[Rfam]
RNA sequence: CGUAAUUUAAACAAAACACACAUGUAUCGGCACAUAUUCCGGGGUGCUUUGCGUUGCACUGAACAACAGUCAGCCCAAGGUCGGCAUAUGGGAUACAUGGAGGCUUAAC
Numbered sequence: 001c002g003u004a005a006u007u008u009a010a011a012c013a014a015a016a017c018a019c020a021c022a023u024g025u026a027u028c029g030g031c032a033c034a035u036a037u038u039c040c041g042g043g044g045u046g047c048u049u050u051g052c053g054u055u056g057c058a059c060u061g062a063a064c065a066a067c068a069g070u071c072a073g074c075c076c077a078a079g080g081u082c083g084g085c086a087u088a089u090g091g092g093a094u095a096c097a098u099g100g101a102g103g104c105u106u107a108a109c
Stems, first nucleotide, its partner, number of pairs: 021099008033090005039084003046081005
RNA: t44 RNA